[Rfam]
RNA sequence: UUCAACUUUACAACGGAGGAUUGGAAUGAUGGAACCAAGUUUCCUGAAACAAUCCCAUCAAGAUUCCUGCGUGCGUCAUGAAUGACAGUUCAUGGGGUUCGAAGCAAAGGUAGAGUCGGCAGAAGGAAGGCUAAAGCCAUUCCAACGGAAAAGGUAUGUUAACUAAUAUGCCGGAUGGCUGAAAA
Numbered sequence: 001u002u003c004a005a006c007u008u009u010a011c012a013a014c015g016g017a018g019g020a021u022u023g024g025a026a027u028g029a030u031g032g033a034a035c036c037a038a039g040u041u042u043c044c045u046g047a048a049a050c051a052a053u054c055c056c057a058u059c060a061a062g063a064u065u066c067c068u069g070c071g072u073g074c075g076u077c078a079u080g081a082a083u084g085a086c087a088g089u090u091c092a093u094g095g096g097g098u099u100c101g102a103a104g105c106a107a108a109g110g111u112a113g114a115g116u117c118g119g120c121a122g123a124a125g126g127a128a129g130g131c132u133a134a135a136g137c138c139a140u141u142c143c144a145a146c147g148g149a150a151a152a153g154g155u156a157u158g159u160u161a162a163c164u165a166a167u168a169u170g171c172c173g174g175a176u177g178g179c180u181g182a183a184a185a
Base pairs, nucleotide, nucleotide: 018055019054020053021052022051023050031045032044034042056177057176058175059174066110067109068108070101071100073098074097076095077094078093079092080091081090082089083088117173118172119171120170121169125164126163129160136155137154138153140151141150143148
Source information
A member of the RNA family "Group II catalytic intron D1-D4-5" from Virgibacillus indicus, 185 nucleotides long. Gene Ontology term of the family: Group II intron splicing. A search with the family's covariance model found it, with a score of 85 bits. From the family's description: Group II introns are found in rRNA, tRNA and mRNA of organelles in fungi, plants and protists, and also in mRNA in bacteria. Pairs were carried over by alignment from the consensus structure.